[Rfam]
RNA: Streptococcus sRNA SpF51
RNA sequence: AGUAUAGUCUCCUAAAUACACAAAGCCCUUGUUAAAGGGCUUUUU
Numbered sequence: 001a002g003u004a005u006a007g008u009c010u011c012c013u014a015a016a017u018a019c020a021c022a023a024a025g026c027c028c029u030u031g032u033u034a035a036a037g038g039g040c041u042u043u044u045u
Base pairs, nucleotide, nucleotide: 002019003018004017005016024041025040026039027038028037029036